Source information:
Rfam assigns this 94-nucleotide sequence from Usitatibacter palustris to the family "c-di-GMP-I riboswitch aptamer". Taxonomically the source falls in Usitatibacter (Bacteria, Pseudomonadati, Pseudomonadota, Usitatibacteraceae). It scores 76 bits against the family's covariance model.
RNA sequence: CCUGAAACAGGGCAAACCCAUCGAAAGGUGGGGGCGCAAAGUCACCGGUCUAAAGGGUGCCGUUCAAAGGCCCUACGACAGCGGGAUUGCCAGA
Numbered sequence: 001c002c003u004g005a006a007a008c009a010g011g012g013c014a015a016a017c018c019c020a021u022c023g024a025a026a027g028g029u030g031g032g033g034g035c036g037c038a039a040a041g042u043c044a045c046c047g048g049u050c051u052a053a054a055g056g057g058u059g060c061c062g063u064u065c066a067a068a069g070g071c072c073c074u075a076c077g078a079c080a081g082c083g084g085g086a087u088u089g090c091c092a093g094a
Stems, first nucleotide, its partner, number of pairs: 012037002017032006040088004045084003048079003055073004